The record is a 144-nucleotide RNA from Nocardioides sp. GY 10127, which matches "ALIL pseudoknot" in Rfam. A search with the family's covariance model found it, with a score of 64 bits.

RNA sequence: GGCGUUUUUCGCCGCGGCGGAGCUCGACCGCAAGGUGAGGUGAGCACCGCGGUGUUGGUCGCCUACAUCGACCAGCAUCGGGGCCAGUUCGGGGUCGAGCCGAUCUGCAAGGUCUUGCGUCAGGCAGGCGUGCAGGUCGCCCCG
Numbered sequence: 001g002g003c004g005u006u007u008u009u010c011g012c013c014g015c016g017g018c019g020g021a022g023c024u025c026g027a028c029c030g031c032a033a034g035g036u037g038a039g040g041u042g043a044g045c046a047c048c049g050c051g052g053u054g055u056u057g058g059u060c061g062c063c064u065a066c067a068u069c070g071a072c073c074a075g076c077a078u079c080g081g082g083g084c085c086a087g088u089u090c091g092g093g094g095u096c097g098a099g100c101c102g103a104u105c106u107g108c109a110a111g112g113u114c115u116u117g118c119g120u121c122a123g124g125c126a127g128g129c130g131u132g133c134a135g136g137u138c139g140c141c142c143c144g
Stems, first nucleotide, its partner, number of pairs: 017031004090144005101139002104136006